A member of the RNA family "Selenocysteine insertion sequence 1" from Eudyptes chrysocome, 64 nucleotides long.
[Rfam]
RNA sequence: GAGCGCUCCAUGACGGGAACGGCCGAAACGUCCGCCGGCACCGGGCCGUUUCCAGAUGCCGCGC
Numbered sequence: 001g002a003g004c005g006c007u008c009c010a011u012g013a014c015g016g017g018a019a020c021g022g023c024c025g026a027a028a029c030g031u032c033c034g035c036c037g038g039c040a041c042c043g044g045g046c047c048g049u050u051u052c053c054a055g056a057u058g059c060c061g062c063g064c
Base pairs, nucleotide, nucleotide: 003064004063005062015053016052017051018050019049020048021047022046023045024044030039031038032037
Pairs were carried over by alignment from the consensus structure, which is taken from published work. From the family's description: The incorporation of selenocysteine into a protein sequence is directed by an in-frame UGA codon (usually a stop codon) within the coding region of the mRNA. Selenoprotein mRNAs contain a conserved secondary structure in the 3' UTR that is required for the distinction of UGA stop from UGA selenocysteine. The selenocysteine insertion sequence (SECIS) is around 60 nt in length and adopts a hairpin structure which is sufficiently well-defined and conserved to act as a computational screen for selenoprotein genes.